Shown here is an 86-nucleotide RNA sequence from Marinomonas piezotolerans, a member of the family "sRNA-Xcc1".
The organism belongs to Marinomonas, within Bacteria.
It scores 64 bits against the family's covariance model.
The base pairs follow the family's consensus structure, which was predicted with RNAalifold.
RNA sequence: GUCGGGAGGGCGACAGCCAUACAACACCUUAGGGGAAAACUGUCCGCGGUCUCUUGUAGCCGUUUUGAGCCUCCUGACACCUAUCA
Numbered sequence: 001g002u003c004g005g006g007a008g009g010g011c012g013a014c015a016g017c018c019a020u021a022c023a024a025c026a027c028c029u030u031a032g033g034g035g036a037a038a039a040c041u042g043u044c045c046g047c048g049g050u051c052u053c054u055u056g057u058a059g060c061c062g063u064u065u066u067g068a069g070c071c072u073c074c075u076g077a078c079a080c081c082u083a084u085c086a
Stems, first nucleotide, its partner, number of pairs: 001078009012044004027034002046063005